[Rfam]
RNA: Ribosomal S15 leader
RNA sequence: CUGAGAUGCUGAAUUAGAGAUCGGCACUCAUUUUUAUUAAUCAAAGUAUAUUUGGAGUUCUAUUAUGUCUCUAAGCACUGAAGCGAAAGCGAAAAUUGUCGCUGAUUUCGGUCGUGGCGAA
Numbered sequence: 001c002u003g004a005g006a007u008g009c010u011g012a013a014u015u016a017g018a019g020a021u022c023g024g025c026a027c028u029c030a031u032u033u034u035u036a037u038u039a040a041u042c043a044a045a046g047u048a049u050a051u052u053u054g055g056a057g058u059u060c061u062a063u064u065a066u067g068u069c070u071c072u073a074a075g076c077a078c079u080g081a082a083g084c085g086a087a088a089g090c091g092a093a094a095a096u097u098g099u100c101g102c103u104g105a106u107u108u109c110g111g112u113c114g115u116g117g118c119g120a121a
Base pairs, nucleotide, nucleotide: 007026008025009024010023011022012021051075052074053073054072055071056070057069